[Rfam]
Rfam assigns this 82-nucleotide sequence from Morus notabilis to the family "MIR473 microRNA precursor family". Pairs were carried over by alignment from the consensus structure, which was predicted with WAR. Rfam 15.1 lists 189 matches to the family in 90 species. NCBI's taxonomy places the organism under Eukaryota, Euphyllophyta, rosids, Moraceae, Morus. A search with the family's covariance model found it, with a score of 56 bits.
RNA sequence: GUUGUUUACUCUCACUCAAAGGCUUCAGGCAAUACCGGAGACCGCGGUGAGCUCGAAGCCUCUGAGGGAGAGUAGACAAAAU
Numbered sequence: 001g002u003u004g005u006u007u008a009c010u011c012u013c014a015c016u017c018a019a020a021g022g023c024u025u026c027a028g029g030c031a032a033u034a035c036c037g038g039a040g041a042c043c044g045c046g047g048u049g050a051g052c053u054c055g056a057a058g059c060c061u062c063u064g065a066g067g068g069a070g071a072g073u074a075g076a077c078a079a080a081a082u
Base pairs, nucleotide, nucleotide: 006075007074008073009072010071011070012069013068015066017064018063020061021060022059023058024057025056026055